A member of the RNA family "mir-203 microRNA precursor family" from Phascolarctos cinereus, 80 nucleotides long. Pairs were carried over by alignment from the consensus structure, which was predicted with RNAalifold. The family has 32 seed sequences and 1,049 matches in Rfam 15.1. The match comes from Rfam's covariance-model search (98 bits).

RNA sequence: GCUUCCCUGGUGCAGUGGUUCUUAACAGUUCAACAGUUCUAUUAAAAAAUUGUGAAAUGUUUAGGACCACUCGAUCAGGG
Numbered sequence: 001g002c003u004u005c006c007c008u009g010g011u012g013c014a015g016u017g018g019u020u021c022u023u024a025a026c027a028g029u030u031c032a033a034c035a036g037u038u039c040u041a042u043u044a045a046a047a048a049a050u051u052g053u054g055a056a057a058u059g060u061u062u063a064g065g066a067c068c069a070c071u072c073g074a075u076c077a078g079g080g
Base pairs, nucleotide, nucleotide: 014071015070016069017068018067019066021064022063024061025060026059027058029056030055031054032053